Shown here is a 384-nucleotide part of an RNA from Muribaculaceae bacterium Isolate-002, a member of the family "Bacterial large subunit ribosomal RNA".
RNA sequence: GAUAAGGAGGGCGAGAAACCCUCCCGCCUAAAGACCAAGGGUUCCUGAUCAACGCUAAUCGGAUCAGGGUAAGUCGGGGCCUAAGGAGAAGCCGCAAGGCGCAUCCGAUGGAUAAACGGUAAAAAUUCCGUUACCCGCAACAUGAGCGACGUGGCGACGGAGGAGUGACACAUCCGCGUGCUGACGGAAUAGCACGUUGAACCGCGUAGGUAAAUCAGAGGCAGGCAAAUCCACCUCAGAUGCCGAAACGGGAUAGUACGGAGAGCCCCCGGGCAAUCCGAUAGCGAUGGUAACCAUACUCCCAAGAAAACCCGCUAAGCAUAUUGUGUUGCGGCCCGUACCCUAAACCGACACAGGUGGUCGAGUAGAGAAUACUGAGGCGCU
Numbered sequence: 001g002a003u004a005a006g007g008a009g010g011g012c013g014a015g016a017a018a019c020c021c022u023c024c025c026g027c028c029u030a031a032a033g034a035c036c037a038a039g040g041g042u043u044c045c046u047g048a049u050c051a052a053c054g055c056u057a058a059u060c061g062g063a064u065c066a067g068g069g070u071a072a073g074u075c076g077g078g079g080c081c082u083a084a085g086g087a088g089a090a091g092c093c094g095c096a097a098g099g100c101g102c103a104u105c106c107g108a109u110g111g112a113u114a115a116a117c118g119g120u121a122a123a124a125a126u127u128c129c130g131u132u133a134c135c136c137g138c139a140a141c142a143u144g145a146g147c148g149a150c151g152u153g154g155c156g157a158c159g160g161a162g163g164a165g166u167g168a169c170a171c172a173u174c175c176g177c178g179u180g181c182u183g184a185c186g187g188a189a190u191a192g193c194a195c196g197u198u199g200a201a202c203c204g205c206g207u208a209g210g211u212a213a214a215u216c217a218g219a220g221g222c223a224g225g226c227a228a229a230u231c232c233a234c235c236u237c238a239g240a241u242g243c244c245g246a247a248a249c250g251g252g253a254u255a256g257u258a259c260g261g262a263g264a265g266c267c268c269c270c271g272g273g274c275a276a277u278c279c280g281a282u283a284g285c286g287a288u289g290g291u292a293a294c295c296a297u298a299c300u301c302c303c304a305a306g307a308a309a310a311c312c313c314g315c316u317a318a319g320c321a322u323a324u325u326g327u328g329u330u331g332c333g334g335c336c337c338g339u340a341c342c343c344u345a346a347a348c349c350g351a352c353a354c355a356g357g358u359g360g361u362c363g364a365g366u367a368g369a370g371a372a373u374a375c376u377g378a379g380g381c382g383c384u
Stems, first nucleotide, its partner, number of pairs: 006024006025382004033362004039342002044068006053061002075338004080111002085106003091100003115132005135334011146320002151315004159302004165295001167294001171289004176197006198256001202251003209244003216239001218237004224232002258282001259280004348357002364376004
The base pairs follow the family's consensus structure, which is taken from published work. Taxonomically the source falls in Muribaculaceae (Bacteria, Bacteroidota, Bacteroidia, Bacteroidales). The match comes from Rfam's covariance-model search (2752 bits).